[Rfam]
RNA: Streptomyces RNA 5676
Organism: Streptomyces longispororuber
RNA sequence: AGAUGAGAGAAACACGUCGCCUGCGGGAGACCGCGGGUGACACCGGGUGAGGGCCUCCCCAGCUCCACUCCGGUCGUGCCGUCGCGCACACAUCUGGAGCCAAGUGCUCCGGAACUCCUCACUGAUCGGA
Numbered sequence: 001a002g003a004u005g006a007g008a009g010a011a012a013c014a015c016g017u018c019g020c021c022u023g024c025g026g027g028a029g030a031c032c033g034c035g036g037g038u039g040a041c042a043c044c045g046g047g048u049g050a051g052g053g054c055c056u057c058c059c060c061a062g063c064u065c066c067a068c069u070c071c072g073g074u075c076g077u078g079c080c081g082u083c084g085c086g087c088a089c090a091c092a093u094c095u096g097g098a099g100c101c102a103a104g105u106g107c108u109c110c111g112g113a114a115c116u117c118c119u120c121a122c123u124g125a126u127c128g129g130a
Base pairs, nucleotide, nucleotide: 004121005120006119007118009117010116017040018039019038020037021036022035023034024033025032026031042074043073044072045071046070047069051065052064053063054062076089077088078087079086093113094112095111096110097109098108099107100106122129123128